Human acetyl-coA cholesterol acyltransferase mRNA: a 137-nucleotide RNA sequence from Equus caballus. Lineage of the source: Eukaryota > Gnathostomata > Teleostomi > Equidae > Equus. Its family is annotated with regulation of translational initiation in the Gene Ontology. A search with the family's covariance model found it, with a score of 59 bits.
RNA sequence: UGGCUGCGCUGCGAGUCUUGGGCGUCCGGAGAGCGGUCGGGAGGCGACCUCGCUGCCCGCCGCGCGCUGCGGCUUCCCGGCUUUACCCUCCUGGCCGAGGUACCCGCUGCCGGGCUCCGGCCCCAGGUAAAGCCCAC
Numbered sequence: 001u002g003g004c005u006g007c008g009c010u011g012c013g014a015g016u017c018u019u020g021g022g023c024g025u026c027c028g029g030a031g032a033g034c035g036g037u038c039g040g041g042a043g044g045c046g047a048c049c050u051c052g053c054u055g056c057c058c059g060c061c062g063c064g065c066g067c068u069g070c071g072g073c074u075u076c077c078c079g080g081c082u083u084u085a086c087c088c089u090c091c092u093g094g095c096c097g098a099g100g101u102a103c104c105c106g107c108u109g110c111c112g113g114g115c116u117c118c119g120g121c122c123c124c125a126g127g128u129a130a131a132g133c134c135c136a137c
Base pairs, nucleotide, nucleotide: 004008025080026079028077029076030075032074033073034072036070037069039067041065043063045062046061048059093122094121095120096119100117103114104113105112106111